[Rfam]
Nucleotides: 161
Stems, first nucleotide, its partner, number of pairs: 001128001003125001006121002009118001011115005017109002021105001023104007032095003037090007047080011058068004130153010
Number, partner (000 for none) and nucleotide at each position: 001128c002000c003125g004000c005000c006121c007120g008000u009118c010000g011115c012114u013113c014112c015111u016000a017109c018108c019000g020000a021105u022000u023104g024103a025102a026101c027100g028099a029098u030000c031000c032095g033094g034093u035000g036000a037090a038089g039088c040087g041086u042085a043084c044000g045000g046000c047080u048079u049078g050077u051076u052075u053074u054073a055072u056071u057070u058068u059067u060066u061065g062000a063000u064000u065061u066060g067059a068058g069000a070057g071056g072055g073054u074053a075052a076051g077050a078049u079048g080047a081000a082000a083000a084043g085042u086041a087040c088039g089038u090037u091000g092000a093034a094033c095032c096000u097000u098029a099028u100027u101026g102025u103024u104023u105021a106000g107000a108018g109017g110000a111015a112014g113013g114012a115011g116000a117000a118009g119000u120007c121006g122000u123000a124000a125003c126000a127000a128001g129000g130153u131152u132151u133150c134149c135148g136147u137146a138145g139144g140000u141000g142000a143000a144139c145138c146137u147136g148135c149134g150133g151132a152131a153130g154000g155000a156000u157000c158000a159000u160000u161000c
Source information
Rfam assigns this 161-nucleotide part of an RNA from Galdieria sulphuraria to the family "Eukaryotic small subunit ribosomal RNA". A reference for the family is Yusupov et al. (2001), "Crystal structure of the ribosome at 5.5 A resolution", Science. Its family is annotated with structural constituent of ribosome and ribosome in the Gene Ontology. The organism belongs to Galdieria, within Eukaryota.